RNA sequence: UCUCUUGUGCUCGGGCAUGUACUGUCGCCAGUGAGGUUUUUACCGAGGCACAGUCUUUUGCUGAUUGCAAAUUACACAUCCACACCGUCUACUUGCUUCGGCAUCUAGCAAUUUUUGGAGAACCCCCUUCCAUUGUUUUUUAUUCUGACUUUUCUCGGGG
Numbered sequence: 001u002c003u004c005u006u007g008u009g010c011u012c013g014g015g016c017a018u019g020u021a022c023u024g025u026c027g028c029c030a031g032u033g034a035g036g037u038u039u040u041u042a043c044c045g046a047g048g049c050a051c052a053g054u055c056u057u058u059u060g061c062u063g064a065u066u067g068c069a070a071a072u073u074a075c076a077c078a079u080c081c082a083c084a085c086c087g088u089c090u091a092c093u094u095g096c097u098u099c100g101g102c103a104u105c106u107a108g109c110a111a112u113u114u115u116u117g118g119a120g121a122a123c124c125c126c127c128u129u130c131c132a133u134u135g136u137u138u139u140u141u142a143u144u145c146u147g148a149c150u151u152u153u154c155u156c157g158g159g160g
Stems, first nucleotide, its partner, number of pairs: 021054005027049003035044003087109001089108003094103003123160003
The record is a 160-nucleotide RNA from Fomitiporia mediterranea, which matches "U4 spliceosomal RNA" in Rfam.
Rfam 15.1 lists 32,178 matches to the family in 2,547 species.
The family's consensus secondary structure is taken from published work.